The family of this 117-nucleotide RNA sequence from Pseudoalteromonas piratica is "TPP riboswitch aptamer (THI element)".
Lineage of the source: Bacteria > Pseudomonadati > Gammaproteobacteria > Alteromonadales > Pseudoalteromonas.
It scores 62 bits against the family's covariance model.

[Rfam]
RNA sequence: CGUUACUUGUCGGAGUGCCUUUUACUUUUUGAGUAAAACUAAGGCUGAGAUCGCAUAAGCGGGAUCCGUGAACCUGAAUAGAUUAGUAUCUACGUAGGAAACAAGCAGCUUGGUGGC
Numbered sequence: 001c002g003u004u005a006c007u008u009g010u011c012g013g014a015g016u017g018c019c020u021u022u023u024a025c026u027u028u029u030u031g032a033g034u035a036a037a038a039c040u041a042a043g044g045c046u047g048a049g050a051u052c053g054c055a056u057a058a059g060c061g062g063g064a065u066c067c068g069u070g071a072a073c074c075u076g077a078a079u080a081g082a083u084u085a086g087u088a089u090c091u092a093c094g095u096a097g098g099a100a101a102c103a104a105g106c107a108g109c110u111u112g113g114u115g116g117c
Stems, first nucleotide, its partner, number of pairs: 006105005011068004016062001017045005052061003073098004079092004